This 140-nucleotide RNA from Chloroceryle aenea belongs to the Rfam family "Small nucleolar RNA SNORA8". By type it is an H/ACA-box small nucleolar RNA. ACA8 is a member of the H/ACA class of snoRNA that guide the sites of modification of uridines to pseudouridines.

RNA sequence: UGCAGUGUAUGGGAUCUGCACCCAGCUGUGUCUUCCCGGUGAGGUGUUCAAAAAGCAGUCCUACAGCAUUUCAGCAGCUGACAUGGUUGGUUUUCCUGCAGAUGUGCUGGUUAAGCUUCGUAUUUCUGUUGAAAUAAGUA
Dot-bracket structure: .(.(.((.......(.((((((.(.(.(.......).).)..)))))....).).)).).)..(((.(.((.((.....(.(((...................))).)........)).).).).)))............